[Rfam]
RNA sequence: UCUUCCAUGAUGAUUUCUAACUAGAUGACUUUCGUUCUUCUGAGUUUGCUGAAGCCAUGCUUAGAAUCUGAGCAAGA
Numbered sequence: 001u002c003u004u005c006c007a008u009g010a011u012g013a014u015u016u017c018u019a020a021c022u023a024g025a026u027g028a029c030u031u032u033c034g035u036u037c038u039u040c041u042g043a044g045u046u047u048g049c050u051g052a053a054g055c056c057a058u059g060c061u062u063a064g065a066a067u068c069u070g071a072g073c074a075a076g077a
Base pairs, nucleotide, nucleotide: 001077002076003075005072
This 77-nucleotide RNA from Monodelphis domestica belongs to the Rfam family "Small nucleolar RNA SNORD59". A search with the family's covariance model found it, with a score of 73 bits. The literature on the family includes a 2002 paper in Mol Cell Biol by Galardi et al., "Purified box C/D snoRNPs are able to reproduce site-specific 2'-O-methylation of target RNA in vitro". The source organism's lineage runs through Eukaryota, Teleostomi, Euteleostomi, Didelphidae and Monodelphis.